[Rfam]
RNA: Histone 3' UTR stem-loop
RNA sequence: AACUCGGUGUUUCUCAACACCACCUAGACAAAGAAUCGGAUGUGCU
Numbered sequence: 001a002a003c004u005c006g007g008u009g010u011u012u013c014u015c016a017a018c019a020c021c022a023c024c025u026a027g028a029c030a031a032a033g034a035a036u037c038g039g040a041u042g043u044g045c046u
Base pairs, nucleotide, nucleotide: 006021007020008019009018010017011016